The record is a 261-nucleotide sequence from Clostridium senegalense, which matches "T-box leader" in Rfam. The organism belongs to Clostridium, within Bacteria. The base pairs follow the family's consensus structure, which is taken from published work. On this family, see Winkler et al., RNA 2001: "The GA motif: an RNA element common to bacterial antitermination systems, rRNA, and eukaryotic RNAs". Uncharged tRNA acts as the effector for transcription antitermination of genes in the T-box leader family. T-boxes are found upstream of many aminoacyl-tRNA synthetase genes and some amino acid biosynthetic genes usually in Gram-positive bacteria.
RNA sequence: AUAAAUUCUAUGAAGAGAAAAAGUAAGCAAUAUUUUGUUCUACAGAGAGUUGGCAUUUUGCUGUAAGCCAAUGUUCAAGGUAUAGUGGAAAAUCAUCUCUGAGAAGUAAAACUGAAUUUAGUUUAAGUAAGUUUUGCCGGAGUCUUUCACCGUUAAAAGAUAAGCGUAUUGAUAGAUACGUAACUAAGAGCUAUAAAGGUCUAUUUAUUAUAGAUUAUUUUAUAGAAUUAGGGUGGUAACGCGAUUUAACUCGUCCCUUAU
Numbered sequence: 001a002u003a004a005a006u007u008c009u010a011u012g013a014a015g016a017g018a019a020a021a022a023g024u025a026a027g028c029a030a031u032a033u034u035u036u037g038u039u040c041u042a043c044a045g046a047g048a049g050u051u052g053g054c055a056u057u058u059u060g061c062u063g064u065a066a067g068c069c070a071a072u073g074u075u076c077a078a079g080g081u082a083u084a085g086u087g088g089a090a091a092a093u094c095a096u097c098u099c100u101g102a103g104a105a106g107u108a109a110a111a112c113u114g115a116a117u118u119u120a121g122u123u124u125a126a127g128u129a130a131g132u133u134u135u136g137c138c139g140g141a142g143u144c145u146u147u148c149a150c151c152g153u154u155a156a157a158a159g160a161u162a163a164g165c166g167u168a169u170u171g172a173u174a175g176a177u178a179c180g181u182a183a184c185u186a187a188g189a190g191c192u193a194u195a196a197a198g199g200u201c202u203a204u205u206u207a208u209u210a211u212a213g214a215u216u217a218u219u220u221u222a223u224a225g226a227a228u229u230a231g232g233g234u235g236g237u238a239a240c241g242c243g244a245u246u247u248a249a250c251u252c253g254u255c256c257c258u259u260a261u
Base pairs, nucleotide, nucleotide: 007104008103015099016098017097018096027086028085030083031082040073049072050071051070052069053068054067107136108135109134110133111132112131113130138152139151140150191225192224193223194222195221196220197219230258231257232256233255241254242253243252244251